t44 RNA: a 91-nucleotide RNA from Pontibacterium sinense. Rfam describes the family as follows. This family consists of a number of bacterial RNA genes of between 135 and 170 bases in length. The t44 gene has been identified in several species of enteric bacteria but homologs have also been identified in Pseudomonas and Coxiella species. The t44 gene is found between the map and rpsB genes in all species in the full alignment apart from Shigella flexneri.
RNA sequence: UCUGCGCACUACAUAAAACACACACGCUCCGUCACAUCGUUCAGGGUGCCUCAUUUUUGAGGUUGGGCAAUGGGGAGUGUGGAGGUUUAAC
Numbered sequence: 001u002c003u004g005c006g007c008a009c010u011a012c013a014u015a016a017a018a019c020a021c022a023c024a025c026g027c028u029c030c031g032u033c034a035c036a037u038c039g040u041u042c043a044g045g046g047u048g049c050c051u052c053a054u055u056u057u058u059g060a061g062g063u064u065g066g067g068c069a070a071u072g073g074g075g076a077g078u079g080u081g082g083a084g085g086u087u088u089a090a091c
Stems, first nucleotide, its partner, number of pairs: 023081008035072003039068005048063005
Dot-bracket structure: ......................((((((((....(((.(((((....(((((......)))))))))).))).))))))))..........

It scores 74 bits against the family's covariance model.